[Rfam]
RNA sequence: GUAAUAUAAGAAACCGUCUCUUAACUUUUAACUAAAAAAACUAUGAACCGGCUCUUAAAUAUCUUAUUUAAAAGUCGGUUCAUAGCUUUUUUAGUUAAAAGUUAAGAGACGAUUUCUUAUAUUCC
Numbered sequence: 001g002u003a004a005u006a007u008a009a010g011a012a013a014c015c016g017u018c019u020c021u022u023a024a025c026u027u028u029u030a031a032c033u034a035a036a037a038a039a040a041c042u043a044u045g046a047a048c049c050g051g052c053u054c055u056u057a058a059a060u061a062u063c064u065u066a067u068u069u070a071a072a073a074g075u076c077g078g079u080u081c082a083u084a085g086c087u088u089u090u091u092u093a094g095u096u097a098a099a100a101g102u103u104a105a106g107a108g109a110c111g112a113u114u115u116c117u118u119a120u121a122u123u124c125c
Stems, first nucleotide, its partner, number of pairs: 001125001003123011015111025041085007

This 125-nucleotide RNA sequence from Brassica napus belongs to the Rfam family "MIR9563 microRNA precursor family". Rfam 15.1 lists 5,832 matches to the family in 9 species. NCBI's taxonomy places the organism under Eukaryota, Euphyllophyta, Magnoliopsida, Gunneridae, Brassica.